Background:
The record is a 73-nucleotide RNA from Acipenser ruthenus, which matches "mir-30 microRNA precursor family" in Rfam. Taxonomically the source falls in Acipenser (Eukaryota, Deuterostomia, Actinopteri, Acipenserinae). About the family: This family consists of the mammalian microRNA (miRNA) precursor mir-30a.
RNA sequence: GUAGGGAUUGUAAACAUCCUACACUCUCAGCUGUGUGCCUGGGAGCUGGGAGAGGGAUGUUUACUCUCUCUUC
Numbered sequence: 001g002u003a004g005g006g007a008u009u010g011u012a013a014a015c016a017u018c019c020u021a022c023a024c025u026c027u028c029a030g031c032u033g034u035g036u037g038c039c040u041g042g043g044a045g046c047u048g049g050g051a052g053a054g055g056g057a058u059g060u061u062u063a064c065u066c067u068c069u070c071u072u073c
Stems, first nucleotide, its partner, number of pairs: 003071004010064011024052009